[Rfam]
RNA sequence: GGGAGCGGAUAGCGGCCUGGUGGCGCUCCUGGACUUCAAAUCCAGUGUGGGGCGUUAAUACCGUCCUGGGUGGGUUCGAUUCCCACACGUUCCC
Numbered sequence: 001g002g003g004a005g006c007g008g009a010u011a012g013c014g015g016c017c018u019g020g021u022g023g024c025g026c027u028c029c030u031g032g033a034c035u036u037c038a039a040a041u042c043c044a045g046u047g048u049g050g051g052g053c054g055u056u057a058a059u060a061c062c063g064u065c066c067u068g069g070g071u072g073g074g075u076u077c078g079a080u081u082c083c084c085a086c087a088c089g090u091u092c093c094c
Base pairs, nucleotide, nucleotide: 001094002093003092004091005090006089007088008086011027012026013025015024016023017022029045030044031043032042033041048068049067050066051065052064071085072084073083074082